Shown here is a 78-nucleotide RNA sequence from Eptesicus fuscus, a member of the family "mir-204 microRNA precursor family". Rfam's curators put it in the seed alignment. On this family, see Gu et al., FEBS Lett 2007: "Identification and characterization of microRNAs from the bovine adipose tissue and mammary gland". The base pairs follow the family's consensus structure, which was predicted with RNAalifold. Rfam links the family to the GO terms miRNA-mediated post-transcriptional gene silencing and RISC complex. Lineage of the source: Eukaryota > Eumetazoa > Bilateria > Amniota > Eptesicus.
RNA sequence: GCUGCCGGGCUUCCCUUUGUCAUCCUUUGCCUCGGGCUCUGAGCGGGGCAGGGACAGCAAAGGGGUGCUCGGCUGUCC
Numbered sequence: 001g002c003u004g005c006c007g008g009g010c011u012u013c014c015c016u017u018u019g020u021c022a023u024c025c026u027u028u029g030c031c032u033c034g035g036g037c038u039c040u041g042a043g044c045g046g047g048g049c050a051g052g053g054a055c056a057g058c059a060a061a062g063g064g065g066u067g068c069u070c071g072g073c074u075g076u077c078c
Stems, first nucleotide, its partner, number of pairs: 012065006019058002023054005029049004